[Rfam]
RNA sequence: CAUGCGAUUUGAACGCUCUUUUGUCAGCGUUAAACAAAUUAAGCCACGGCCAUACAUCGCCAUGAAGUUAAUCGCUUCUGGCGUGACAUGUUCUGCUGCCAUGAUCA
Dot-bracket structure: ...(((((...((((((........))))))......((....(...)...))..)))))........(.(((((..(.((((.....))).).)..))...))).)
RNA: Vibrio RNA AS9
Organism: Vibrio toranzoniae